The record is an 85-nucleotide RNA sequence from Psychroflexus torquis, which matches "Flavo-1 RNA" in Rfam. The source organism's lineage runs through Bacteria, Flavobacteriales, Flavobacteriaceae, Psychroflexus and Psychroflexus torquis. It is one of the family's seed sequences.
RNA sequence: AGUCGCUCGCGUUAGGGAUAGAAGCGGCAUCCCUCAUUGCCGAUAGGUAUCGGAAAUGAGGAUAUAGCAUAUAGCCCGACGCUUU
Numbered sequence: 001a002g003u004c005g006c007u008c009g010c011g012u013u014a015g016g017g018a019u020a021g022a023a024g025c026g027g028c029a030u031c032c033c034u035c036a037u038u039g040c041c042g043a044u045a046g047g048u049a050u051c052g053g054a055a056a057u058g059a060g061g062a063u064a065u066a067g068c069a070u071a072u073a074g075c076c077c078g079a080c081g082c083u084u085u
Base pairs, nucleotide, nucleotide: 015077016076017075019073020072024068025067029063030062031061032060035058036057037056038055040053041052042051043050044049